[Rfam]
Rfam assigns this 87-nucleotide sequence from Klebsiella sp. RIT-PI-d to the family "OmrA-B family". Lineage of the source: Bacteria > Pseudomonadati > Gammaproteobacteria > Enterobacterales > Klebsiella. For this family Rfam cites "Novel small RNA-encoding genes in the intergenic regions of Escherichia coli" (Argaman et al., Curr Biol, 2001). Rfam 15.1 lists 153 matches to the family in 128 species.
RNA sequence: CCCAGAGGUAUUGAUUGGUGAGAUUUUUUGGUACGCAUUUCGUACCCGACUCUUACACCGGCCUGCGCAGAUGCGCAGGUUUUUUUU
Numbered sequence: 001c002c003c004a005g006a007g008g009u010a011u012u013g014a015u016u017g018g019u020g021a022g023a024u025u026u027u028u029u030g031g032u033a034c035g036c037a038u039u040u041c042g043u044a045c046c047c048g049a050c051u052c053u054u055a056c057a058c059c060g061g062c063c064u065g066c067g068c069a070g071a072u073g074c075g076c077a078g079g080u081u082u083u084u085u086u087u
Stems, first nucleotide, its partner, number of pairs: 016060005030046006061080008